Source information:
tRNA: a 73-nucleotide RNA sequence from Citrus unshiu.

RNA sequence: GGGGAUGUAGCUCAAAUGGUAGAGCGCUCGCUUUGCAUGCCAGAGUUAAGAGGUUCGAUACCCCGCAUCUCCA
Numbered sequence: 001g002g003g004g005a006u007g008u009a010g011c012u013c014a015a016a017u018g019g020u021a022g023a024g025c026g027c028u029c030g031c032u033u034u035g036c037a038u039g040c041c042a043g044a045g046u047u048a049a050g051a052g053g054u055u056c057g058a059u060a061c062c063c064c065g066c067a068u069c070u071c072c073a
Stems, first nucleotide, its partner, number of pairs: 001072007010025004027043002030040002050064001052062002

About this RNA
Rfam classes the family as a transfer RNA. Lineage of the source: Eukaryota > Mesangiospermae > Gunneridae > rosids > Citrus.